[Rfam]
RNA sequence: GGGCAGGAUGGGCGAAGUUAGCUAACCAGCGGAGCCGGUUAUCUACCUUCGCUAACCCUUAUUCGCGCCGGGGGCGCUCAACGGGCAUCCUGCUCUGCGAGGUU
Numbered sequence: 001g002g003g004c005a006g007g008a009u010g011g012g013c014g015a016a017g018u019u020a021g022c023u024a025a026c027c028a029g030c031g032g033a034g035c036c037g038g039u040u041a042u043c044u045a046c047c048u049u050c051g052c053u054a055a056c057c058c059u060u061a062u063u064c065g066c067g068c069c070g071g072g073g074g075c076g077c078u079c080a081a082c083g084g085g086c087a088u089c090c091u092g093c094u095c096u097g098c099g100a101g102g103u104u
Base pairs, nucleotide, nucleotide: 001095002094003093004092005091006090007089008088009087012052013051014050015049016048017047019045020044021043024040025039026038027037030034056085057084058083065077066076067075068074069073
RNA: traJ-II RNA
Organism: Aromatoleum aromaticum